[Rfam]
Record summary:
Shown here is a 118-nucleotide sequence from Corchorus capsularis, a member of the family "MIR408 microRNA precursor family". A reference for the family is Sunkar and Zhu (2004), "Novel and stress-regulated microRNAs and other small RNAs from Arabidopsis", Plant Cell. NCBI's taxonomy places the organism under Eukaryota, Spermatophyta, rosids, Malvaceae, Corchorus. The family has 8 seed sequences and 299 matches in Rfam 15.1. Rfam links the family to the GO terms RISC complex and miRNA-mediated post-transcriptional gene silencing.
RNA sequence: AAAUUAAGAUGUGAGAGAGACAGGGAACAGGCUGAGCAUGGAUGGAUCUGUCAACAGGUUUCUGUUGUUGCUCCGCCCAUGCACUGCCUCUUCCCUGGCUCUCCCUCCCUCCAAUCUU
Numbered sequence: 001a002a003a004u005u006a007a008g009a010u011g012u013g014a015g016a017g018a019g020a021c022a023g024g025g026a027a028c029a030g031g032c033u034g035a036g037c038a039u040g041g042a043u044g045g046a047u048c049u050g051u052c053a054a055c056a057g058g059u060u061u062c063u064g065u066u067g068u069u070g071c072u073c074c075g076c077c078c079a080u081g082c083a084c085u086g087c088c089u090c091u092u093c094c095c096u097g098g099c100u101c102u103c104c105c106u107c108c109c110u111c112c113a114a115u116c117u118u
Base pairs, nucleotide, nucleotide: 017101018100019099021097022096023095024094025093026092027091029089030088031087032086034084036082037081038080039079040078041077045073046072